Record summary:
Rfam assigns this 75-nucleotide sequence from Streptomyces cellostaticus to the family "ASpks TB sRNA". Pairs were carried over by alignment from the consensus structure, which is taken from published work. The source organism's lineage runs through Bacteria, Bacillati, Actinomycetes, Streptomycetaceae and Streptomyces.

[Rfam]
RNA sequence: CUUCACCGAGCCGAGCCACAAAGGCCGGUGCGGAUCCCGGCCCUGUCCGUAGGUCGCGAGCAGCGCCUCCGCCUC
Numbered sequence: 001c002u003u004c005a006c007c008g009a010g011c012c013g014a015g016c017c018a019c020a021a022a023g024g025c026c027g028g029u030g031c032g033g034a035u036c037c038c039g040g041c042c043c044u045g046u047c048c049g050u051a052g053g054u055c056g057c058g059a060g061c062a063g064c065g066c067c068u069c070c071g072c073c074u075c
Stems, first nucleotide, its partner, number of pairs: 015025003031071003038065002043060002047056001049054001
The match comes from Rfam's covariance-model search (79 bits).